[Rfam]
RNA sequence: GACGCGCUAGCGGGAGAGACCGGGUCACCCAACUGUGUACCCGGCGCCGAAGGAGCAACUGCCCCGGAAACUCUCAGGCAAAAGGACCGCUAGCGCGAA
Number, nucleotide and partner (000 for none) at each position: 001g000002a000003c000004g000005c000006g094007c093008u092009a091010g090011c089012g088013g087014g000015a000016g000017a000018g000019a000020c044021c043022g042023g041024g040025u039026c000027a000028c000029c000030c000031a000032a000033c000034u000035g000036u000037g000038u000039a025040c024041c023042c022043g021044g020045c000046g079047c078048c077049g075050a074051a000052g000053g073054a072055g071056c000057a000058a000059c066060u000061g000062c000063c000064c000065c000066g059067g000068a000069a000070a000071c055072u054073c053074u050075c049076a000077g048078g047079c046080a000081a000082a000083a000084g000085g000086a000087c013088c012089g011090c010091u009092a008093g007094c006095g000096c000097g000098a000099a000
RNA: Glycine riboswitch aptamer
Organism: Marinobacter vulgaris